Shown here is a 92-nucleotide RNA sequence from Secundilactobacillus mixtipabuli, a member of the family "tRNA". By type it is a transfer RNA.
RNA sequence: GGAGAGUUGUCCGAGUUGGCCGAAGGAGCACCACUGGAAAUGGUGUAAACGAGUAAAAGCUUGUUUCGAGGGUUCGAAUCCCUCACUCUCCG
Numbered sequence: 001g002g003a004g005a006g007u008u009g010u011c012c013g014a015g016u017u018g019g020c021c022g023a024a025g026g027a028g029c030a031c032c033a034c035u036g037g038a039a040a041u042g043g044u045g046u047a048a049a050c051g052a053g054u055a056a057a058a059g060c061u062u063g064u065u066u067c068g069a070g071g072g073u074u075c076g077a078a079u080c081c082c083u084c085a086c087u088c089u090c091c092g
Base pairs, nucleotide, nucleotide: 001091002090003089004088005087006086007085010027011026012025029045030044031043032042033041068084069083070082071081072080
The source organism's lineage runs through Bacteria, Bacillati, Bacilli, Lactobacillaceae and Secundilactobacillus.